[Rfam]
Record summary:
Rfam assigns this 72-nucleotide sequence from Salarias fasciatus to the family "mir-196 microRNA precursor family". The family has 84 seed sequences and 1,813 matches in Rfam 15.1. Taxonomically the source falls in Salarias (Eukaryota, Eumetazoa, Actinopterygii, Euacanthomorphacea).
RNA sequence: CGAGUGGUUUAGGUAGUUUCAUGUUGUUGGGGUGUAUUCUAACUCUGCAACACGAAACGUCUUAAUUGCCAC
Numbered sequence: 001c002g003a004g005u006g007g008u009u010u011a012g013g014u015a016g017u018u019u020c021a022u023g024u025u026g027u028u029g030g031g032g033u034g035u036a037u038u039c040u041a042a043c044u045c046u047g048c049a050a051c052a053c054g055a056a057a058c059g060u061c062u063u064a065a066u067u068g069c070c071a072c
Base pairs, nucleotide, nucleotide: 004069005068006067007066008065009064011062012061013060014059016058017057018056019055022052023051024050025049026048027047029045030044031043